[Rfam]
RNA sequence: UGAACAGAUUAUUGUAUUCGACUGUAUUCACGACGCGGAACAGGGGACUAUACUGUUUUUAAACUGAAAGUGAAUUAAUUAACAUAAUAGACUCCU
Number, nucleotide and partner (000 for none) at each position: 001u000002g095003a000004a093005c000006a000007g000008a000009u090010u089011a088012u087013u086014g085015u084016a000017u082018u081019c000020g080021a079022c000023u077024g076025u000026a075027u074028u073029c072030a071031c070032g000033a000034c000035g064036c000037g059038g058039a057040a056041c055042a054043g053044g000045g000046g000047a000048c000049u000050a000051u000052a000053c043054u042055g041056u040057u039058u038059u037060u000061a000062a000063a000064c035065u000066g000067a000068a000069a000070g031071u030072g029073a028074a027075u026076u024077a023078a000079u021080u020081a018082a017083c000084a015085u014086a013087a012088u011089a010090g009091a000092c000093u004094c000095c002096u000

Rfam assigns this 96-nucleotide RNA from Nicotiana attenuata to the family "MIR6152 microRNA precursor family". The family's consensus secondary structure was predicted with RNAalifold. Gene Ontology terms of the family: miRNA-mediated post-transcriptional gene silencing and RISC complex.